[Rfam]
RNA: DUF3800-I RNA
RNA sequence: UGUUGUUACAGGCAGAAAUACACUGUAUACACUCGAUUACUGAUACUUUGUAUUAAGCGUAUCUUAAGUACGCCAGCCGAGUGGAAAAGCAGCUUUUUAUAGCUGUUUUUUUAUGUAUAAA
Number, nucleotide and partner (000 for none) at each position: 001u000002g000003u000004u000005g000006u000007u027008a026009c025010a024011g023012g021013c000014a019015g000016a000017a000018a000019u014020a000021c012022a000023c011024u010025g009026u008027a007028u000029a000030c083031a082032c081033u080034c079035g078036a000037u000038u000039a000040c076041u075042g074043a053044u052045a051046c000047u000048u000049u000050g000051u045052a044053u043054u000055a000056a000057g073058c072059g071060u070061a069062u068063c000064u000065u000066a000067a000068g062069u061070a060071c059072g058073c057074c042075a041076g040077c000078c035079g034080a033081g032082u031083g030084g111085a110086a109087a108088a107089g106090c105091a104092g103093c102094u000095u000096u000097u000098u000099a000100u000101a000102g093103c092104u091105g090106u089107u088108u087109u086110u085111u084112u000113a000114u000115g000116u000117a000118u000119a000120a000121a000